The record is a 213-nucleotide part of an RNA from Diaporthe ampelina, which matches "Ascomycota telomerase RNA" in Rfam. Clan: Telomerase clan. A search with the family's covariance model found it, with a score of 453 bits. By type it is a non-coding RNA gene. NCBI's taxonomy places the organism under Eukaryota, Dikarya, Pezizomycotina, Diaporthaceae, Diaporthe.
Nucleotides: 213
Stems, first nucleotide, its partner, number of pairs: 009196003015192004
Number, partner (000 for none) and nucleotide at each position: 001000u002000c003000c004000c005000c006000c007000a008000c009196a010195g011194u012000u013000c014000u015192c016191c017190g018189a019000u020000u021000c022000g023000c024000g025000u026000u027000u028000u029000c030000c031000g032000c033000a034000a035000g036000g037000a038000a039000u040000g041000u042000c043000c044000g045000u046000c047000u048000g049000g050000a051000c052000c053000c054000u055000u056000c057000u058000g059000c060000u061000g062000g063000g064000c065000u066000g067000g068000g069000u070000c071000a072000u073000c074000a075000c076000a077000a078000u079000a080000c081000g082000u083000c084000g085000c086000a087000u088000c089000u090000c091000g092000u093000a094000c095000c096000u097000g098000u099000a100000u101000c102000a103000g104000g105000a106000a107000u108000c109000u110000c111000g112000a113000u114000g115000a116000u117000c118000g119000c120000c121000g122000c123000g124000c125000u126000c127000u128000g129000g130000u131000c132000u133000a134000u135000u136000g137000u138000g139000c140000c141000a142000c143000g144000g145000u146000u147000g148000u149000c150000a151000g152000c153000a154000a155000c156000u157000g158000a159000c160000a161000a162000g163000c164000c165000a166000g167000u168000c169000u170000c171000c172000c173000a174000g175000c176000g177000a178000g179000g180000g181000u182000a183000c184000g185000c186000g187000u188000c189018u190017c191016g192015g193000a194011a195010c196009u197000u198000a199000a200000c201000c202000c203000u204000a205000a206000g207000u208000a209000a210000a211000a212000u213000g